[Rfam]
RNA sequence: UAGUAGUCAUAUGACUGACGGAAGUGGAGUUACCACAUGAAGUAUGACUGAGGUAUAUUGUUUUAUAUGCCAAAAUAAGCCGACCGUCUGGGCGAGAAAG
Numbered sequence: 001u002a003g004u005a006g007u008c009a010u011a012u013g014a015c016u017g018a019c020g021g022a023a024g025u026g027g028a029g030u031u032a033c034c035a036c037a038u039g040a041a042g043u044a045u046g047a048c049u050g051a052g053g054u055a056u057a058u059u060g061u062u063u064u065a066u067a068u069g070c071c072a073a074a075a076u077a078a079g080c081c082g083a084c085c086g087u088c089u090g091g092g093c094g095a096g097a098a099a100g
Stems, first nucleotide, its partner, number of pairs: 004050009015039001017088005024036004079093003

ZMP/ZTP riboswitch aptamer (pfl RNA motif): a 100-nucleotide sequence from Clostridium sp. DL-VIII. It scores 52 bits against the family's covariance model.